This 71-nucleotide sequence from Drosophila ananassae belongs to the Rfam family "mir-2 microRNA precursor family". Lineage of the source: Eukaryota > Altocrustacea > Aparaglossata > Acalyptratae > ananassae species complex. A reference for the family is Lee and Ambros (2001), "An extensive class of small RNAs in Caenorhabditis elegans", Science. The family's consensus secondary structure was predicted with PFOLD.
[Rfam]
RNA sequence: GGGCUCACAAAGUGGUUGUGAAAUGCAUUUCCAUUUUGCCCGCAUAUCACAGCCAGCUUUGAUGAGCUUAG
Numbered sequence: 001g002g003g004c005u006c007a008c009a010a011a012g013u014g015g016u017u018g019u020g021a022a023a024u025g026c027a028u029u030u031c032c033a034u035u036u037u038g039c040c041c042g043c044a045u046a047u048c049a050c051a052g053c054c055a056g057c058u059u060u061g062a063u064g065a066g067c068u069u070a071g
Base pairs, nucleotide, nucleotide: 005065006064007063008061009060010059011058012057013055014054015053016052017051018050019049020048021047024046025045